[Rfam]
RNA sequence: GGAAGUUAAAAAACUGUUUCUUAACUUUUAACUAAAAAGGCUAAGAACUGGUUAUUAAAAUUCUUAUUUAAAAACCGGUUCUUAACUUUUUUAUUUAAAAGUUAAGAAAUAGUUUUUUAACUUCC
Number, nucleotide and partner (000 for none) at each position: 001g125002g124003a123004a122005g121006u120007u119008a118009a117010a116011a115012a114013a113014c112015u111016g110017u109018u108019u107020c106021u105022u104023a103024a102025c101026u100027u099028u098029u097030a096031a095032c000033u093034a092035a091036a090037a089038a088039g087040g000041c000042u084043a083044a082045g081046a080047a079048c000049u000050g000051g000052u000053u000054a000055u000056u000057a000058a000059a000060a000061u000062u000063c000064u000065u000066a000067u000068u000069u000070a000071a000072a000073a000074a000075c000076c000077g000078g000079u047080u046081c045082u044083u043084a042085a000086c000087u039088u038089u037090u036091u035092u034093a033094u000095u031096u030097a029098a028099a027100a026101g025102u024103u023104a022105a021106g020107a019108a018109a017110u016111a015112g014113u013114u012115u011116u010117u009118u008119a007120a006121c005122u004123u003124c002125c001
RNA: MIR9563 microRNA precursor family